Description
A member of the RNA family "Plastid-rpl16 group II-D1 intron" from Pleurospermum camtschaticum, 47 nucleotides long.

RNA sequence: AAGAGCUUUGAGCCAAUAAAGACUAAUAAAAUUGGCUCAAGAAAAAA
Numbered sequence: 001a002a003g004a005g006c007u008u009u010g011a012g013c014c015a016a017u018a019a020a021g022a023c024u025a026a027u028a029a030a031a032u033u034g035g036c037u038c039a040a041g042a043a044a045a046a047a
Stems, first nucleotide, its partner, number of pairs: 007041002010038008

Source information:
Rfam's curators put it in the seed alignment.